[Rfam]
Rfam assigns this 63-nucleotide sequence from Actinoallomurus iriomotensis to the family "Actino-pnp RNA". The match comes from Rfam's covariance-model search (70 bits). By type it is a cis-regulatory element. Pairs were carried over by alignment from the consensus structure, which is taken from published work.
RNA sequence: GCCGGUCCUCGGUAGUGGCCAUCGGAACCCGGGCGGGUCCGACGGCUUCGAUCGAAGACCGGC
Numbered sequence: 001g002c003c004g005g006u007c008c009u010c011g012g013u014a015g016u017g018g019c020c021a022u023c024g025g026a027a028c029c030c031g032g033g034c035g036g037g038u039c040c041g042a043c044g045g046c047u048u049c050g051a052u053c054g055a056a057g058a059c060c061g062g063c
Stems, first nucleotide, its partner, number of pairs: 001063007009055005017047004022042005028037003